[Rfam]
RNA: Nuclear RNase P
Organism: Trichonephila inaurata
RNA sequence: UGUGGGGAGUUUGCGUGAGGGGCUACGAUCGUAUUUAUAUUGCACUGUUUGCCCUUGGGAAGGUCUGAGAUGACACCGCCUUUCAAGGAGGUCCGAGAUGGGCUCCCGUUCAAUUAGCGGGACGGGCAAAGAGAAACAUUGUGUCUUGCGGUUUUGGUUGCGAAUGAAGUUCUCUCUUCUGAGACCCUCUUCUGCCGCAUAGAUUUGGGAUAUUCUCGUGGCAAGAAUGUCAAAGCUCGAUAUGCAAAGCGCCAUUCAUGGUGUAACACAAUUCAGACUACUCCCUCACGCA
Number, nucleotide and partner (000 for none) at each position: 001u292002g291003u290004g289005g286006g285007g284008a000009g000010u248011u247012u246013g245014c244015g243016u242017g000018a056019g055020g054021g053022g052023c000024u000025a000026c000027g000028a000029u000030c000031g000032u042033a000034u000035u000036u000037a000038u000039a000040u000041u000042g032043c000044a000045c000046u000047g000048u000049u000050u000051g000052c022053c021054c020055u019056u018057g000058g000059g000060a000061a000062g000063g000064u000065c276066u275067g274068a273069g272070a000071u000072g000073a000074c000075a000076c000077c000078g222079c221080c220081u000082u000083u000084c000085a000086a000087g000088g000089a000090g104091g103092u102093c101094c100095g000096a000097g000098a000099u000100g094101g093102g092103c091104u090105c121106c120107c119108g118109u117110u116111c000112a000113a000114u000115u000116a110117g109118c108119g107120g106121g105122a219123c218124g217125g216126g215127c000128a213129a000130a000131g000132a000133g000134a000135a000136a000137c000138a000139u000140u000141g000142u000143g000144u000145c000146u000147u000148g000149c000150g000151g000152u000153u000154u000155u000156g000157g000158u000159u000160g000161c000162g000163a000164a000165u000166g000167a000168a000169g000170u000171u000172c000173u000174c000175u000176c000177u000178u000179c000180u000181g000182a000183g000184a000185c000186c000187c000188u000189c000190u000191u000192c000193u000194g000195c000196c000197g000198c000199a000200u000201a000202g000203a000204u000205u000206u000207g000208g000209g000210a000211u000212a000213u128214u000215c126216u125217c124218g123219u122220g080221g079222c078223a000224a000225g000226a000227a000228u000229g000230u000231c000232a000233a000234a000235g000236c000237u000238c000239g000240a000241u000242a016243u015244g014245c013246a012247a011248a010249g264250c263251g262252c261253c260254a259255u000256u000257c000258a000259u254260g253261g252262u251263g250264u249265a000266a000267c000268a000269c000270a000271a000272u069273u068274c067275a066276g065277a000278c000279u000280a000281c000282u000283c000284c007285c006286u005287c000288a000289c004290g003291c002292a001